[Rfam]
RNA sequence: UUCUUAUCGAGAGAGGUGGAGGGACUGGCCCUUUGAUACCUCAGCAGCAGACUUAUAGUACUGUGCUAAUUCCAGAAGCUAAGAGCUUGAAGAUAAGAA
Numbered sequence: 001u002u003c004u005u006a007u008c009g010a011g012a013g014a015g016g017u018g019g020a021g022g023g024a025c026u027g028g029c030c031c032u033u034u035g036a037u038a039c040c041u042c043a044g045c046a047g048c049a050g051a052c053u054u055a056u057a058g059u060a061c062u063g064u065g066c067u068a069a070u071u072c073c074a075g076a077a078g079c080u081a082a083g084a085g086c087u088u089g090a091a092g093a094u095a096a097g098a099a
Base pairs, nucleotide, nucleotide: 001099002098003097004096005095006094007093008092013042014041015040016039017038021031022030023029025075026074027073028072043067044066045065046064048063049062051059052058053057071091076088077087078086079085080084